The record is an 83-nucleotide RNA sequence from Phyllostomus discolor, which matches "mir-488 microRNA precursor family" in Rfam. On this family, see Bentwich et al., Nat Genet 2005: "Identification of hundreds of conserved and nonconserved human microRNAs". Lineage of the source: Eukaryota > Amniota > Theria > Phyllostomidae > Phyllostomus. Its family is annotated with miRNA-mediated post-transcriptional gene silencing and RISC complex in the Gene Ontology.
RNA sequence: GAGACCCAUCUCUCCCGGAUAAUGGCUCUCUCAAACAGGUUUCCAAGUCGUUUGAAAGGCUGUUUCUUGGUCAGAAGACUCUC
Numbered sequence: 001g002a003g004a005c006c007c008a009u010c011u012c013u014c015c016c017g018g019a020u021a022a023u024g025g026c027u028c029u030c031u032c033a034a035a036c037a038g039g040u041u042u043c044c045a046a047g048u049c050g051u052u053u054g055a056a057a058g059g060c061u062g063u064u065u066c067u068u069g070g071u072c073a074g075a076a077g078a079c080u081c082u083c
Stems, first nucleotide, its partner, number of pairs: 001083004007077001009075003014070002017067003021064006028058002031055006038048001
The family's consensus secondary structure was predicted with RNAalifold.